[Rfam]
RNA: Group II catalytic intron D1-D4-4
RNA sequence: UUGCCGGUGUGAGUCCGGUCCGGGUAGCUGCCAGGAGGCCCGGUAGCAGGCUGGCGGCAUCGGGGGGAAACGCCUGGUGUCGAAGCCCAGCGGCAAAGGCCCUUAUGGGGAGCGAGGAUGCGGUCCGUGGCAUGA
Numbered sequence: 001u002u003g004c005c006g007g008u009g010u011g012a013g014u015c016c017g018g019u020c021c022g023g024g025u026a027g028c029u030g031c032c033a034g035g036a037g038g039c040c041c042g043g044u045a046g047c048a049g050g051c052u053g054g055c056g057g058c059a060u061c062g063g064g065g066g067g068a069a070a071c072g073c074c075u076g077g078u079g080u081c082g083a084a085g086c087c088c089a090g091c092g093g094c095a096a097a098g099g100c101c102c103u104u105a106u107g108g109g110g111a112g113c114g115a116g117g118a119u120g121c122g123g124u125c126c127g128u129g130g131c132a133u134g135a
Base pairs, nucleotide, nucleotide: 020043021042022041023040024039050091051090052089053088054087055082056081057080058079059078060077064073066071100110101109102108112128113127114126
Dot-bracket structure: ...................(((((..............)))))......(((((((((((...(.(....).)...))))))....)))))........(((.....))).(((...........))).......